Small nucleolar RNA SNORD66: a 78-nucleotide RNA from Calcarius ornatus. The family's consensus secondary structure was predicted with RNAalifold. Rfam 15.1 lists 1,346 matches to the family in 614 species. The source organism's lineage runs through Eukaryota, Vertebrata, Euteleostomi, Passeriformes and Calcarius. It scores 34 bits against the family's covariance model.
RNA sequence: UCCCUAUGAUGGAUCUUUUUUCUGUGCCUCCCCUUAUGGGUGCCUGAGGAUAUUUAAUGGGUUGGAGAGUCUGAGGGA
Numbered sequence: 001u002c003c004c005u006a007u008g009a010u011g012g013a014u015c016u017u018u019u020u021u022c023u024g025u026g027c028c029u030c031c032c033c034u035u036a037u038g039g040g041u042g043c044c045u046g047a048g049g050a051u052a053u054u055u056a057a058u059g060g061g062u063u064g065g066a067g068a069g070u071c072u073g074a075g076g077g078a
Stems, first nucleotide, its partner, number of pairs: 001078004